[Rfam]
RNA sequence: GAGGGCAGGGGAAGCACGGCUUCGCAGCGCACAGAAGGGGAGCUUGCUCCCAUCCAUGCUGCGGGGAAAGUCCCCGUGCCUUGGGCAGAGAGUGUCAGCGGGAGACCGCUAGGCCCCAGCCAUGGUGCCGGCGGUGAGGCUUUGAGCGGAGCCACGGUGCCAGGCCUGGGGCUAGUCGCAGCAGCACAGGCAUGCCGUGAGCGUUCGAUGAGAUCGCCAACUGAACGGGGCUCACUCUCCCCAUGCCCU
Numbered sequence: 001g002a003g004g005g006c007a008g009g010g011g012a013a014g015c016a017c018g019g020c021u022u023c024g025c026a027g028c029g030c031a032c033a034g035a036a037g038g039g040g041a042g043c044u045u046g047c048u049c050c051c052a053u054c055c056a057u058g059c060u061g062c063g064g065g066g067a068a069a070g071u072c073c074c075c076g077u078g079c080c081u082u083g084g085g086c087a088g089a090g091a092g093u094g095u096c097a098g099c100g101g102g103a104g105a106c107c108g109c110u111a112g113g114c115c116c117c118a119g120c121c122a123u124g125g126u127g128c129c130g131g132c133g134g135u136g137a138g139g140c141u142u143u144g145a146g147c148g149g150a151g152c153c154a155c156g157g158u159g160c161c162a163g164g165c166c167u168g169g170g171g172c173u174a175g176u177c178g179c180a181g182c183a184g185c186a187c188a189g190g191c192a193u194g195c196c197g198u199g200a201g202c203g204u205u206c207g208a209u210g211a212g213a214u215c216g217c218c219a220a221c222u223g224a225a226c227g228g229g230g231c232u233c234a235c236u237c238u239c240c241c242c243a244u245g246c247c248c249u
Stems, first nucleotide, its partner, number of pairs: 002249005008242005015199006022064007038051005069232002072230004084096004097110005113172007121164001125160003130153003139147003201217003205213002
RNA: RNase MRP
Organism: Polarella glacialis